RNA sequence: GGCCUAAAGCGUUCGUAGCCGGCCACGCAAGUUCAUCGGGAAAUCCGCCAGCCUAACUGGCGGGCGUCCGGUGAAAACUGCGUGGCUUGGGACCGGAAGACCCGAAGGGUACGUCUUGGGUAGGAGUGAAAUCCCGUAAUCCUGGACGGACCGCCGAUGGCGAAAGCACUUCGGGAAGACGGAUCCGACGGUGAGGAACGAAAGCCAGGGUCUUGAACCGGAUUAGAUACCCGGGUAGUCCUGGCCGUAAACGAUGUCUGCUAGGUGCGACCCCCACUACGAGUGGGUGUUGUGCCGUAGGGAAGCCGCUAAGCAGACCGCCUGGGAAGUACGUCCGCAAGGAUGAAACUUAAAGGAAU
Numbered sequence: 001g002g003c004c005u006a007a008a009g010c011g012u013u014c015g016u017a018g019c020c021g022g023c024c025a026c027g028c029a030a031g032u033u034c035a036u037c038g039g040g041a042a043a044u045c046c047g048c049c050a051g052c053c054u055a056a057c058u059g060g061c062g063g064g065c066g067u068c069c070g071g072u073g074a075a076a077a078c079u080g081c082g083u084g085g086c087u088u089g090g091g092a093c094c095g096g097a098a099g100a101c102c103c104g105a106a107g108g109g110u111a112c113g114u115c116u117u118g119g120g121u122a123g124g125a126g127u128g129a130a131a132u133c134c135c136g137u138a139a140u141c142c143u144g145g146a147c148g149g150a151c152c153g154c155c156g157a158u159g160g161c162g163a164a165a166g167c168a169c170u171u172c173g174g175g176a177a178g179a180c181g182g183a184u185c186c187g188a189c190g191g192u193g194a195g196g197a198a199c200g201a202a203a204g205c206c207a208g209g210g211u212c213u214u215g216a217a218c219c220g221g222a223u224u225a226g227a228u229a230c231c232c233g234g235g236u237a238g239u240c241c242u243g244g245c246c247g248u249a250a251a252c253g254a255u256g257u258c259u260g261c262u263a264g265g266u267g268c269g270a271c272c273c274c275c276a277c278u279a280c281g282a283g284u285g286g287g288u289g290u291u292g293u294g295c296c297g298u299a300g301g302g303a304a305g306c307c308g309c310u311a312a313g314c315a316g317a318c319c320g321c322c323u324g325g326g327a328a329g330u331a332c333g334u335c336c337g338c339a340a341g342g343a344u345g346a347a348a349c350u351u352a353a354a355g356g357a358a359u
Stems, first nucleotide, its partner, number of pairs: 001322003009319001011199004016193001018192003022086007030079002032075009045063007090186003093182003101175007108152002112148005118142002123134003160167002204245006214238001218234004256318006264296008273287005300307002324351003333344004
RNA: Archaeal small subunit ribosomal RNA, nucleotides 505 to 863
Organism: Haloplanus ruber